The record is a 460-nucleotide part of an RNA from Herdmania momus, which matches "Eukaryotic large subunit ribosomal RNA" in Rfam. Rfam's curators put it in the seed alignment. NCBI's taxonomy places the organism under Eukaryota, Eumetazoa, Stolidobranchia, Pyuridae, Herdmania.

Nucleotides: 460
Base pairs, nucleotide, nucleotide: 016034017033018032019031020030021029035458036457044440045439046438050420051419055079056078057077058076059075060074064072065071086416087415088414090158091157095152096151097113098112102109103108120145121144122143123142124141162179163178165176166175182412183411184410185409188407189406190405191404197224198223199222200221201220202219232389233388234387235386236385237384241374242373243372244371246369247368248367249366250365251364252363254359255358256357259275260274261273262272281330282329283328284327285326290320291319292318293317294316295315299310300309301308302307337354338353339352340351341350342349425434426433442454443453444452445451
Number, partner (000 for none) and nucleotide at each position: 001000g002000g003000g004000u005000a006000g007000u008000a009000g010000c011000a012000a013000a014000u015000a016034u017033u018032c019031a020030a021029a022000u023000g024000a025000g026000a027000g028000c029021u030020u031019u032018g033017a034016a035458g036457g037000u038000c039000g040000a041000a042000g043000u044440g045439g046438a047000c048000a049000a050420g051419g052000g053000u054000u055079c056078c057077a058076u059075g060074u061000g062000a063000a064072c065071a066000g067000c068000a069000g070000u071065u072064g073000a074060a075059c076058a077057u078056g079055g080000g081000u082000c083000a084000g085000u086416c087415g088414g089000c090158c091157c092000u093000a094000a095152g096151g097113g098112a099000a100000c101000a102109g103108c104000a105000a106000a107000c108103g109102c110000g111000g112098u113097u114000u115000u116000c117000u118000a119000u120145g121144g122143g123142g124141g125000g126000c127000g128000u129000u130000g131000c132000a133000u134000g135000c136000c137000u138000u139000c140000g141124c142123c143122c144121c145120c146000g147000g148000a149000g150000u151096c152095c153000g154000a155000a156000a157091g158090g159000g160000a161000a162179u163178c164000u165176g166175g167000u168000u169000a170000a171000u172000a173000u174000u175166c176165c177000c178163g179162a180000a181000c182412c183411u184410c185409g186000a187000g188407a189406c190405g191404g192000a193000g194000a195000u196000u197224g198223g199222u200221g201220c202219u203000u204000c205000g206000g207000g208000g209000c210000g211000c212000c213000c214000a215000g216000u217000g218000c219202g220201g221200c222199a223198c224197c225000a226000a227000c228000u229000g230000a231000a232389c233388u234387c235386g236385g237384a238000g239000c240000a241374g242373c243372u244371g245000g246369c247368g248367u249366g250365g251364g252363u253000c254359c255358c256357g257000g258000g259275a260274a261273g262272a263000g264000u265000u266000c267000u268000c269000u270000u271000u272262u273261c274260u275259u276000g277000g278000u279000a280000a281330g282329g283328a284327g285326c286000a287000g288000a289000c290320g291319c292318c293317c294316u295315g296000g297000a298000a299310u300309c301308g302307g303000u304000u305000g306000c307302c308301c309300g310299g311000a312000g313000a314000c315295u316294a317293g318292g319291g320290c321000u322000c323000g324000a325000a326285g327284c328283u329282c330281c331000g332000u333000a334000a335000a336000g337354c338353a339352c340351c341350g342349c343000u344000c345000u346000c347000u348000u349342g350341c351340g352339g353338u354337g355000u356000c357256c358255g359254g360000u361000g362000a363252a364251c365250c366249c367248g368247c369246g370000u371244u372243g373242g374241c375000c376000c377000a378000u379000g380000a381000a382000a383000a384237u385236c386235c387234g388233a389232g390000g391000g392000a393000g394000a395000u396000g397000g398000u399000g400000u401000a402000g403000u404191u405190c406189g407188u408000g409185c410184g411183a412182g413000g414088c415087c416086g417000u418000a419051c420050c421000c422000a423000u424000a425434u426433c427000g428000c429000a430000g431000c432000a433426g434425g435000u436000c437000u438046u439045c440044c441000a442454a443453g444452g445451u446000g447000a448000a449000c450000a451445g452444c453443c454442u455000c456000u457036c458035c459000g460000a